[Rfam]
RNA sequence: GUAUUCUUGCGCCCAUGACCCGCCACCUGUCCGCCCUCCGACGUCGCCGCUCGCUACCCGCAAGGGAAGCCGUCGGCUCAUAGCGGACGCGCACCUCGCCACGCAACAGUCAAGCGAGGGGCGCAAUCGGUCAAACCGCGAAAGCCACGGACUACCGUGGCUUUUUU
Numbered sequence: 001g002u003a004u005u006c007u008u009g010c011g012c013c014c015a016u017g018a019c020c021c022g023c024c025a026c027c028u029g030u031c032c033g034c035c036c037u038c039c040g041a042c043g044u045c046g047c048c049g050c051u052c053g054c055u056a057c058c059c060g061c062a063a064g065g066g067a068a069g070c071c072g073u074c075g076g077c078u079c080a081u082a083g084c085g086g087a088c089g090c091g092c093a094c095c096u097c098g099c100c101a102c103g104c105a106a107c108a109g110u111c112a113a114g115c116g117a118g119g120g121g122c123g124c125a126a127u128c129g130g131u132c133a134a135a136c137c138g139c140g141a142a143a144g145c146c147a148c149g150g151a152c153u154a155c156c157g158u159g160g161c162u163u164u165u166u167u
Stems, first nucleotide, its partner, number of pairs: 007134002011094001014091001020089001031086003040079002043077003046073002049070002054065001141164010

The record is a 167-nucleotide RNA from Trinickia soli, which matches "Burkholderia sRNA 7" in Rfam. Pairs were carried over by alignment from the consensus structure, which was predicted with R-scape. The family's RNA type in Rfam is small RNA. It scores 84 bits against the family's covariance model. From the family's description: Did not show any change in expression in iron-depletion and hydrogen peroxide (oxidative stress) treatment. Constitutively expressed. Possibly targets the GTPase, ObgE. The source organism's lineage runs through Bacteria, Betaproteobacteria, Burkholderiales, Burkholderiaceae and Trinickia.